[Rfam]
RNA: tRNA
Nucleotides: 073
Stems, first nucleotide, its partner, number of pairs: 001072007010025004027043005049065005
Number, partner (000 for none) and nucleotide at each position: 001072g002071a003070g004069c005068c006067g007066g008000u009000a010025g011024c012023u013022c014000a015000g016000c017000u018000g019000g020000u021000a022013g023012a024011g025010c026000a027043c028042g029041g030040g031039a032000c033000u034000u035000u036000u037000a038000a039031u040030c041029u042028c043027g044000u045000g046000g047000c048000c049065g050064u051063g052062g053061g054000u055000u056000c057000g058000a059000g060000u061053c062052c063051c064050a065049c066007c067006c068005g069004g070003c071002u072001c073000a